Shown here is a 101-nucleotide RNA sequence from Mordavella massiliensis, a member of the family "Glycine riboswitch aptamer". Its family is annotated with glycine biosynthetic process in the Gene Ontology.
[Rfam]
RNA sequence: UGAUAUUUUCCCGGAGAGAGCCGCAUCGGCCGCCGAAGAGGCAAACCUGUCAGAAUAGUCGGACAGGCGAAACUUUCAGGCAAAAGGACGGGGAAAAGGAC
Numbered sequence: 001u002g003a004u005a006u007u008u009u010c011c012c013g014g015a016g017a018g019a020g021c022c023g024c025a026u027c028g029g030c031c032g033c034c035g036a037a038g039a040g041g042c043a044a045a046c047c048u049g050u051c052a053g054a055a056u057a058g059u060c061g062g063a064c065a066g067g068c069g070a071a072a073c074u075u076u077c078a079g080g081c082a083a084a085a086g087g088a089c090g091g092g093g094a095a096a097a098g099g100a101c
Stems, first nucleotide, its partner, number of pairs: 006096008020030004032081003035077002039075003046067006